[Rfam]
RNA: mir-M7 microRNA precursor family
Organism: Mardivirus gallidalpha2
RNA sequence: AACUGUUAUCUCGGGGAGAUCCCGAUCUCUCCUACCAGCAACUCGAGAUCUCUACGAGAUUACAGUU
Numbered sequence: 001a002a003c004u005g006u007u008a009u010c011u012c013g014g015g016g017a018g019a020u021c022c023c024g025a026u027c028u029c030u031c032c033u034a035c036c037a038g039c040a041a042c043u044c045g046a047g048a049u050c051u052c053u054a055c056g057a058g059a060u061u062a063c064a065g066u067u
Stems, first nucleotide, its partner, number of pairs: 005063002008060006015053006024044002031038001